The family of this 102-nucleotide RNA from Alkalihalobacillus trypoxylicola is "Purine riboswitch aptamer". Gene Ontology term of the family: purine nucleobase biosynthetic process.
[Rfam]
RNA sequence: UGUUAUAACAUUUUAAAAGCUCAUAUAAUAGCAAGAAUAAGGCUUGCGAGUUUCUACCAAACUACCGUAAAUAGUUUGACUAUGGGUGAAUAAAAAUUGGUU
Dot-bracket structure: ..................(((((((...(.(((((.......))))).)........(((((((.......)))))))..)))))))...............
Numbered sequence: 001u002g003u004u005a006u007a008a009c010a011u012u013u014u015a016a017a018a019g020c021u022c023a024u025a026u027a028a029u030a031g032c033a034a035g036a037a038u039a040a041g042g043c044u045u046g047c048g049a050g051u052u053u054c055u056a057c058c059a060a061a062c063u064a065c066c067g068u069a070a071a072u073a074g075u076u077u078g079a080c081u082a083u084g085g086g087u088g089a090a091u092a093a094a095a096a097u098u099g100g101u102u
Stems, first nucleotide, its partner, number of pairs: 019087007029049001031047005058078007